[Rfam]
RNA sequence: GUUGAUAUCCAGUCAUCGCUUAAUAUGCUGCAUUGAAGUAUUUUAAGAGGAAAGUCCGAGCUCCAAUAAGAGUAUAAUGCUAGGUAAUGCCUAGGAGUUUAAAACUUAAGAGAGUGUCACAGAAAAUUACCGCCUUAGGGUAAGGGUGAAAAGGUGAGGUAAGAGCUCACCGCUUAUUUAGUGAUAAAUAAGGUCAAGAUAAACCUCAUUAGGAGCAAAAUCAAAUAAGCAAGCUUCCUUAGCUCUUGAGGGUAUGCUUGCGGGUGGAUUGCAUGAUUUUUUCAGUGAUGAAAAAACAAGAUAGAUGAUGACAUAAUACAGAACUCGGCUUAUGGAUAUCAACUUAA
Numbered sequence: 001g002u003u004g005a006u007a008u009c010c011a012g013u014c015a016u017c018g019c020u021u022a023a024u025a026u027g028c029u030g031c032a033u034u035g036a037a038g039u040a041u042u043u044u045a046a047g048a049g050g051a052a053a054g055u056c057c058g059a060g061c062u063c064c065a066a067u068a069a070g071a072g073u074a075u076a077a078u079g080c081u082a083g084g085u086a087a088u089g090c091c092u093a094g095g096a097g098u099u100u101a102a103a104a105c106u107u108a109a110g111a112g113a114g115u116g117u118c119a120c121a122g123a124a125a126a127u128u129a130c131c132g133c134c135u136u137a138g139g140g141u142a143a144g145g146g147u148g149a150a151a152a153g154g155u156g157a158g159g160u161a162a163g164a165g166c167u168c169a170c171c172g173c174u175u176a177u178u179u180a181g182u183g184a185u186a187a188a189u190a191a192g193g194u195c196a197a198g199a200u201a202a203a204c205c206u207c208a209u210u211a212g213g214a215g216c217a218a219a220a221u222c223a224a225a226u227a228a229g230c231a232a233g234c235u236u237c238c239u240u241a242g243c244u245c246u247u248g249a250g251g252g253u254a255u256g257c258u259u260g261c262g263g264g265u266g267g268a269u270u271g272c273a274u275g276a277u278u279u280u281u282u283c284a285g286u287g288a289u290g291a292a293a294a295a296a297c298a299a300g301a302u303a304g305a306u307g308a309u310g311a312c313a314u315a316a317u318a319c320a321g322a323a324c325u326c327g328g329c330u331u332a333u334g335g336a337u338a339u340c341a342a343c344u345u346a347a
Base pairs, nucleotide, nucleotide: 001343002342003341004340005339006338007337008336009335010334011333012312013311014310015309016308017307019047020046021045022044023043025041026040027039028038029037052331053330054329056328057327058326059325060324061215062214063213064212072247075211076210077209078208079207080094081093082092083091084090096106097105098104099103109206110205114204115203116200117199118198130145131144132141133140134139153171154170155169156168157167158166172195173192174191175190176189177188178187179186180185219270220269221268222267229261230260231259232258233257234256240254241253243251244250277296278295279294280293281292282291283290284289
Overview: The record is a 347-nucleotide RNA sequence from Borrelia hermsii, which matches "Bacterial RNase P class A" in Rfam. It is annotated as a ribozyme. Lineage of the source: Bacteria > Pseudomonadati > Spirochaetales > Borreliaceae > Borrelia hermsii.